[Rfam]
Shown here is a 136-nucleotide sequence from Manduca sexta, a member of the family "Small nucleolar RNA SNORA57". The literature on the family includes a 2003 paper in Nucleic Acids Res by Vitali et al., "Identification of 13 novel human modification guide RNAs". The match comes from Rfam's covariance-model search (50 bits). Taxonomically the source falls in Manduca (Eukaryota, Aparaglossata, Heteroneura, Bombycoidea). The family's consensus secondary structure was predicted with PFOLD. U99 belongs to the H/ACA class of snoRNAs which are thought to guide the sites of modification of uridines to pseudouridines, the target for this family is unknown.

RNA sequence: CCUCAUACCUUUGGCAUGGGUACGUUUUUUCAAUAGCGUGACAUGAAUGCACGUAUGAGGUAGAUAAAUACAGCUACAUGCCUUCGGUGUCCACACUUUACAUGUCUGGAUCCCAUCCUCAGAUGCUGUAACACUU
Numbered sequence: 001c002c003u004c005a006u007a008c009c010u011u012u013g014g015c016a017u018g019g020g021u022a023c024g025u026u027u028u029u030u031c032a033a034u035a036g037c038g039u040g041a042c043a044u045g046a047a048u049g050c051a052c053g054u055a056u057g058a059g060g061u062a063g064a065u066a067a068a069u070a071c072a073g074c075u076a077c078a079u080g081c082c083u084u085c086g087g088u089g090u091c092c093a094c095a096c097u098u099u100a101c102a103u104g105u106c107u108g109g110a111u112c113c114c115a116u117c118c119u120c121a122g123a124u125g126c127u128g129u130a131a132c133a134c135u136u
Stems, first nucleotide, its partner, number of pairs: 001060005015045004021040001023038004071128004090110004095105002